[Rfam]
RNA sequence: GCACAUCUGAAAAGCGAGCCGCCGGCCAGCGGCUCCACCCAAGGUGCAAGCCGUGACCCCGCUCGCGACGUCAUGGCGAACCUCUCAGGUCCCGAUGACAGAUGGGGAGGA
Numbered sequence: 001g002c003a004c005a006u007c008u009g010a011a012a013a014g015c016g017a018g019c020c021g022c023c024g025g026c027c028a029g030c031g032g033c034u035c036c037a038c039c040c041a042a043g044g045u046g047c048a049a050g051c052c053g054u055g056a057c058c059c060c061g062c063u064c065g066c067g068a069c070g071u072c073a074u075g076g077c078g079a080a081c082c083u084c085u086c087a088g089g090u091c092c093c094g095a096u097g098a099c100a101g102a103u104g105g106g107g108a109g110g111a
Base pairs, nucleotide, nucleotide: 002106004104005103006102007101008100009099016035017034018033019032020031021030037090038089039088041085044084046082050077051076052075053074054073055072056071057070
Glycine riboswitch aptamer: a 111-nucleotide RNA from Streptomyces colonosanans.
Its family is annotated with glycine biosynthetic process in the Gene Ontology.
The organism belongs to Streptomyces, within Bacteria.